The family of this 135-nucleotide RNA from Gadus morhua is "Small nucleolar RNA SNORA84".
A search with the family's covariance model found it, with a score of 79 bits.
The base pairs follow the family's consensus structure, which was predicted with WAR.
The organism belongs to Gadus, within Eukaryota.
Rfam 15.1 lists 757 matches to the family in 629 species.
A reference for the family is Marker et al. (2002), "Experimental RNomics: identification of 140 candidates for small non-messenger RNAs in the plant Arabidopsis thaliana", Curr Biol.
Its family is annotated with nucleolus and RNA processing in the Gene Ontology.
By type it is an H/ACA-box small nucleolar RNA.
RNA sequence: GCCCUGUGGUUCCUAGAGACAGCUGGAGGUGUUGUUCUGUAGGUCUGGAUUGACGGGCACAGAUUAAAUCUGCGAUUCAAUGCAUGGGAGCUGCUGUUCCAAGCUGCCUUCCAUAGCCCGGUUGCAGAUACAUUG
Number, nucleotide and partner (000 for none) at each position: 001g058002c057003c056004c055005u000006g000007u049008g000009g000010u000011u000012c043013c042014u041015a040016g000017a038018g000019a035020c034021a033022g032023c031024u000025g000026g000027a000028g000029g000030u000031g023032u022033u021034g020035u019036u000037c000038u017039g000040u015041a014042g013043g012044u000045c000046u000047g000048g000049a007050u000051u000052g000053a000054c000055g004056g003057g002058c001059a000060c000061a000062g000063a000064u000065u000066a000067a000068a000069u000070c127071u000072g125073c124074g123075a122076u121077u120078c000079a000080a000081u000082g117083c116084a114085u113086g112087g111088g000089a109090g107091c106092u000093g104094c103095u102096g000097u000098u000099c000100c000101a000102a095103g094104c093105u000106g091107c090108c000109u089110u000111c087112c086113a085114u084115a000116g083117c082118c000119c000120g077121g076122u075123u074124g073125c072126a000127g070128a000129u000130a000131c000132a000133u000134u000135g000